The family of this 60-nucleotide sequence from Mycetohabitans endofungorum is "Betaproteobacteria toxic small RNA". It scores 67 bits against the family's covariance model. The base pairs follow the family's consensus structure, which was predicted with WAR. For this family Rfam cites "Identification of small RNAs abundant in Burkholderia cenocepacia biofilms reveal putative regulators with a potential role in carbon and iron metabolism" (Sass et al., Sci Rep, 2017). From the family's description: Overexpression in amino aid rich medium attenuates growth, suggesting role in repressing amino acid intake and metabolism.
[Rfam]
RNA sequence: UGUCUCCUCCACCUCCUCCUUUGGUGGAUUGAACCCGAACAUUGGUUCGGGUUUUUUUUG
Number, nucleotide and partner (000 for none) at each position: 001u000002g000003u000004c000005u000006c000007c000008u028009c027010c026011a025012c024013c023014u000015c000016c000017u000018c000019c000020u000021u000022u000023g013024g012025u011026g010027g009028a008029u000030u000031g000032a053033a052034c051035c050036c049037g048038a047039a046040c000041a000042u000043u000044g000045g000046u039047u038048c037049g036050g035051g034052u033053u032054u000055u000056u000057u000058u000059u000060g000